[Rfam]
RNA sequence: GUGUUAUAAUGACAACCUGACUCUAAACUCAACGUUGAGAGGAGCAGGUUUGAUGCUCAAAACGC
Numbered sequence: 001g002u003g004u005u006a007u008a009a010u011g012a013c014a015a016c017c018u019g020a021c022u023c024u025a026a027a028c029u030c031a032a033c034g035u036u037g038a039g040a041g042g043a044g045c046a047g048g049u050u051u052g053a054u055g056c057u058c059a060a061a062a063c064g065c
Base pairs, nucleotide, nucleotide: 001065002064003063004062005061014050015049016048017047018046019045022042023041029038030037031036
RNA: Selenocysteine insertion sequence 1